[Rfam]
RNA sequence: AACUUAUCCAGAGUGGUGGAGGGACUGACCCUACGAAGCCCGGCAACCGUUUUGCAAUGCCAUGCAAAAAAAGGUGCUACUUUCAGCAGAAUGAGAUUCAUUCUGAAAGAUAAGUG
Numbered sequence: 001a002a003c004u005u006a007u008c009c010a011g012a013g014u015g016g017u018g019g020a021g022g023g024a025c026u027g028a029c030c031c032u033a034c035g036a037a038g039c040c041c042g043g044c045a046a047c048c049g050u051u052u053u054g055c056a057a058u059g060c061c062a063u064g065c066a067a068a069a070a071a072a073g074g075u076g077c078u079a080c081u082u083u084c085a086g087c088a089g090a091a092u093g094a095g096a097u098u099c100a101u102u103c104u105g106a107a108a109g110a111u112a113a114g115u116g
Base pairs, nucleotide, nucleotide: 002115003114004113005112006111007110008109013041015040016039017038021031022030023029025086026085027084028083042078043077044076045075047074048073050069051068052067053066054065055064082108087105088104089103090102091101092100